[Rfam]
RNA sequence: AGAAAAAGUCAGCUUAAUCUCCUAGUUAAUUAUUUAAUUAUAAGGAGAGCGGAGGAACCGAUUUAGGGGCUUAUCUCUAUGGUUUUAGAUUAGAGAAGGGUAUCUCUCAGCCCUAGCCCGUCAGCUAACUUCGUAAGCAUUGAGAGCAGACUG
Numbered sequence: 001a002g003a004a005a006a007a008g009u010c011a012g013c014u015u016a017a018u019c020u021c022c023u024a025g026u027u028a029a030u031u032a033u034u035u036a037a038u039u040a041u042a043a044g045g046a047g048a049g050c051g052g053a054g055g056a057a058c059c060g061a062u063u064u065a066g067g068g069g070c071u072u073a074u075c076u077c078u079a080u081g082g083u084u085u086u087a088g089a090u091u092a093g094a095g096a097a098g099g100g101u102a103u104c105u106c107u108c109a110g111c112c113c114u115a116g117c118c119c120g121u122c123a124g125c126u127a128a129c130u131u132c133g134u135a136a137g138c139a140u141u142g143a144g145a146g147c148a149g150a151c152u153g
Stems, first nucleotide, its partner, number of pairs: 012138003018048006049134006059066001067119003075095004098113004
Background:
The family of this 153-nucleotide sequence from Pleurocapsales cyanobacterium LEGE 06147 is "c-di-AMP riboswitch aptamer (ydaO/yuaA leader)". Gene Ontology terms of the family: regulation of gene expression and cyclic-di-AMP binding.